[Rfam]
RNA sequence: UUUCCCCUUUGCCACGUUUUCUCCUAAUAAUAGAUCUUAGUGGCUGUGCUUAAGGGGUAAUUAAAAUUGCCAUGAUCUGAAGAGGGAAGAUUUACUUGUGUCCUCUUCCUAUAUGAAAUGGCUGAACAGGAAAAA
Numbered sequence: 001u002u003u004c005c006c007c008u009u010u011g012c013c014a015c016g017u018u019u020u021c022u023c024c025u026a027a028u029a030a031u032a033g034a035u036c037u038u039a040g041u042g043g044c045u046g047u048g049c050u051u052a053a054g055g056g057g058u059a060a061u062u063a064a065a066a067u068u069g070c071c072a073u074g075a076u077c078u079g080a081a082g083a084g085g086g087a088a089g090a091u092u093u094a095c096u097u098g099u100g101u102c103c104u105c106u107u108c109c110u111a112u113a114u115g116a117a118a119u120g121g122c123u124g125a126a127c128a129g130g131a132a133a134a135a
Base pairs, nucleotide, nucleotide: 004056005055006054012043013042014041015040069122070121071120072119087110089108090107